[Rfam]
RNA sequence: AAAUCUGUGAUGAGAAUAAUACUGCAACAAUAUGAAUGGAGAUACGCUAUCUCCACCUUCCAUGUUUACUUGUAUUUAAGUCUCUGAUGAUU
Numbered sequence: 001a002a003a004u005c006u007g008u009g010a011u012g013a014g015a016a017u018a019a020u021a022c023u024g025c026a027a028c029a030a031u032a033u034g035a036a037u038g039g040a041g042a043u044a045c046g047c048u049a050u051c052u053c054c055a056c057c058u059u060c061c062a063u064g065u066u067u068a069c070u071u072g073u074a075u076u077u078a079a080g081u082c083u084c085u086g087a088u089g090a091u092u
Stems, first nucleotide, its partner, number of pairs: 001092002004090002038060004
RNA: Small nucleolar RNA Z199
Organism: Rosa chinensis